[Rfam]
RNA sequence: GAGGCGGUAUCCUACGUGGAACUGCACUCCUGCACGCAAGUAAAACAAGUUUGACAUGCAAGUCGCGGAAUUCUGCUCUGAGCCUAAAAGGGACCGAGACAGAAAA
Numbered sequence: 001g002a003g004g005c006g007g008u009a010u011c012c013u014a015c016g017u018g019g020a021a022c023u024g025c026a027c028u029c030c031u032g033c034a035c036g037c038a039a040g041u042a043a044a045a046c047a048a049g050u051u052u053g054a055c056a057u058g059c060a061a062g063u064c065g066c067g068g069a070a071u072u073c074u075g076c077u078c079u080g081a082g083c084c085u086a087a088a089a090g091g092g093a094c095c096g097a098g099a100c101a102g103a104a105a106a
Base pairs, nucleotide, nucleotide: 001029002028003027004025005024006023007022008021010020011019073102074101075100076098077097078096080094083092084091

Shown here is a 106-nucleotide RNA sequence from Paenibacillus oceani, a member of the family "pan motif". The family's consensus secondary structure is taken from published work. Taxonomically the source falls in Paenibacillus (Bacteria, Bacillati, Bacillota, Bacilli).